Purine riboswitch aptamer: a 102-nucleotide RNA from Bacillus sp. MRMR6. Pairs were carried over by alignment from the consensus structure, which is taken from published work. Its Rfam clan is "Purine riboswitches". The organism belongs to Bacillus, within Bacteria. The match comes from Rfam's covariance-model search (89 bits).
RNA sequence: AAAAUAAUAAUGUAACACCCUCGUAUAAUGUUGGGAAUAUGGCCCAUAAGUUUCUACCCAAUUACCGUAAAUGAUUGGACUAUGAGGGGAAGUGGAUAUGCC
Number, nucleotide and partner (000 for none) at each position: 001a000002a000003a000004a000005u000006a000007a000008u000009a000010a000011u000012g000013u000014a000015a000016c000017a000018c088019c087020c086021u085022c084023g083024u082025a081026u000027a000028a000029u049030g000031u000032u046033g045034g044035g043036a000037a000038u000039a000040u000041g000042g000043c035044c034045c033046a032047u000048a000049a029050g000051u000052u000053u000054c000055u000056a000057c000058c078059c077060a076061a075062u074063u073064a072065c000066c000067g000068u000069a000070a000071a000072u064073g063074a062075u061076u060077g059078g058079a000080c000081u025082a024083u023084g022085a021086g020087g019088g018089g000090a000091a000092g000093u000094g000095g000096a000097u000098a000099u000100g000101c000102c000